[Rfam]
RNA sequence: ACACGAGGAAGGAGGUGGUCUGAAGUUGAAUGACAAACGGACACGUGAGGUGGCUGCCAGCUAGCCGCGGAGCUCUCGGAAUUCACUGACCGCCUUGCGGCUGGCGAAUCCCAGGCAGUUACCCGACCCCCGAACCCUCCGGCCAUGUCCAGGCCGGAAUCCCAUGUACGACGCGCCUAGCGUCGCCAAUGGACGGGUUCGGGGGUCGCUGCAU
Dot-bracket structure: .............((((((.................................)))))).((((((.((((.((..................)).)))).))))))..................(((((((((((((..((((((.......))))))......................................)))))))))))))......
Shown here is a 214-nucleotide RNA from Rhodococcus xishaensis, a member of the family "Actinobacteria sRNA Ms_IGR-5". By type it is a small RNA. On this family, see Li et al., RNA 2013: "Identification of small RNAs in Mycobacterium smegmatis using heterologous Hfq". The base pairs follow the family's consensus structure.